Archaeal small subunit ribosomal RNA: a 528-nucleotide part of an RNA from Candidatus Parvarchaeum acidiphilum. For this family Rfam cites "Crystal structure of the ribosome at 5.5 A resolution" (Yusupov et al., Science, 2001). It is one of the family's seed sequences. Rfam links the family to the GO terms ribosome and structural constituent of ribosome. Pairs were carried over by alignment from the consensus structure, which is taken from published work. Its Rfam clan is "SSU clan".
RNA sequence: AUUCCAGUUGAUCCUGCUGGAGGUCACUGCUAUUGGGAUUCGAAUGAGACAUGCAAGUUCAUCUAUUAGGUAAUAGUAGAUUGCGUACGGCUGAGGCAACACAUAGAUAACGUAACGUUAUGAGGAGGAUAUCCUCGGGAAACUGAGGUUAAUACUCCAUAGCAAUAAUUUUUGAAAUAAUUUUAUUGUGAAAGGUUAUUUCUAAUACCGAAAUAAUACGCAUAACGAUCGGUCUAUGCCUGAUUAGACUGUUGGUGAGGUAACGGCUCACCAAAUCUUAGAUCAGUAGGGGCCAUGGAAGUGGUUUCCCCCAGAAGGGUACUGAGACAAGGACCCUAGCACUACGGUGUGCAGCAGUCCCGAAAACUCCACAAUGCGCGAAAGCGUGAUGAGGGAAUCCCAAGUGUUCUUUCCGUUUCGGAAGGAACUUUUGCCACGUUUUGAAAUGGCGUGGCGAAUAAGGGCUGGGCAAGCGGGUGCCAGCAGCCGCGGUAAUACCUGCGGCCCGAGUUGUGACCAUUAUUAUUG
Number, nucleotide and partner (000 for none) at each position: 001a000002u000003u000004c020005c019006a018007g017008u016009u000010g000011a000012u000013c000014c000015u000016g008017c007018u006019g005020g004021a000022g518023g517024u516025c515026a514027c513028u000029g511030c510031u509032a000033u403034u402035g401036g400037g399038a398039u397040u396041c395042g361043a000044a000045u000046g000047a000048g359049a358050c357051a000052u356053g355054c354055a000056a000057g084058u083059u000060c000061a081062u080063c079064u078065a077066u076067u075068a000069g000070g000071u000072a000073a000074u000075a067076g066077u065078a064079g063080a062081u061082u000083g058084c057085g000086u000087a000088c000089g000090g000091c314092u313093g312094a000095g000096g000097c000098a000099a000100c000101a000102c238103a237104u236105a235106g234107a233108u232109a000110a000111c231112g230113u000114a000115a000116c227117g226118u225119u224120a223121u222122g221123a000124g158125g157126a156127g155128g000129a000130u000131a000132u000133c148134c147135u146136c145137g144138g143139g000140a000141a000142a000143c138144u137145g136146a135147g134148g133149u000150u000151a000152a000153u000154a000155c127156u126157c125158c124159a000160u000161a000162g000163c188164a187165a186166u185167a184168a183169u000170u000171u180172u179173u000174g000175a000176a000177a000178u000179a172180a171181u000182u000183u168184u167185a166186u165187u164188g163189u000190g000191a000192a000193a000194g000195g219196u218197u000198a000199u000200u000201u000202c000203u000204a000205a000206u000207a000208c000209c000210g000211a000212a000213a000214u000215a000216a000217u000218a196219c195220g000221c122222a121223u120224a119225a118226c117227g116228a000229u000230c112231g111232g108233u107234c106235u105236a104237u103238g102239c000240c286241u285242g284243a000244u000245u000246a000247g277248a276249c000250u000251g000252u274253u273254g272255g271256u270257g269258a268259g267260g000261u000262a000263a000264c000265g000266g000267c259268u258269c257270a256271c255272c254273a253274a252275a000276u248277c247278u000279u000280a000281g000282a000283u000284c242285a241286g240287u000288a000289g311290g310291g309292g308293c304294c303295a302296u301297g000298g000299a000300a000301g296302u295303g294304g293305u000306u000307u000308c292309c291310c290311c289312c093313a092314g091315a000316a337317g336318g335319g334320u333321a000322c000323u000324g000325a000326g000327a000328c000329a000330a000331g000332g000333a320334c319335c318336c317337u316338a000339g350340c349341a348342c347343u000344a000345c000346g000347g342348u341349g340350u339351g000352c000353a000354g054355c053356a052357g050358u049359c048360c000361c042362g000363a000364a000365a000366a000367c393368u000369c000370c391371a390372c000373a000374a000375u388376g387377c386378g385379c384380g000381a000382a000383a000384g379385c378386g377387u376388g375389a000390u371391g370392a000393g367394g000395g041396a040397a039398u038399c037400c036401c035402a034403a033404g000405u000406g428407u427408u426409c425410u424411u423412u422413c421414c000415g000416u000417u000418u000419c000420g000421g413422a412423a411424g410425g409426a408427a407428c406429u000430u000431u000432u000433g455434c454435c453436a452437c451438g450439u449440u000441u000442u000443g000444a000445a000446a000447u000448g000449g439450c438451g437452u436453g435454g434455c433456g000457a000458a000459u000460a000461a000462g507463g506464g505465c504466u503467g502468g000469g000470c000471a000472a000473g000474c501475g500476g499477g498478u000479g000480c000481c000482a000483g490484c489485a000486g000487c000488c000489g484490c483491g000492g000493u000494a000495a000496u000497a000498c477499c476500u475501g474502c467503g466504g465505c464506c463507c462508g000509a031510g030511u029512u000513g027514u026515g025516a024517c023518c022519a000520u000521u000522a000523u000524u000525a000526u000527u000528g000